[Rfam]
RNA sequence: AAGACACUAUGAGCCAAUAAAGACUGAGAAGAUCGACUCAAGAAUAAA
Numbered sequence: 001a002a003g004a005c006a007c008u009a010u011g012a013g014c015c016a017a018u019a020a021a022g023a024c025u026g027a028g029a030a031g032a033u034c035g036a037c038u039c040a041a042g043a044a045u046a047a048a
Base pairs, nucleotide, nucleotide: 007042008041011039012038013037015035017033018032

Source information: This 48-nucleotide RNA from Rhododendron williamsianum belongs to the Rfam family "Plastid-rpl16 group II-D1 intron". Gene Ontology term of the family: Group II intron splicing. Lineage of the source: Eukaryota > Magnoliopsida > Pentapetalae > Ericales > Rhododendron.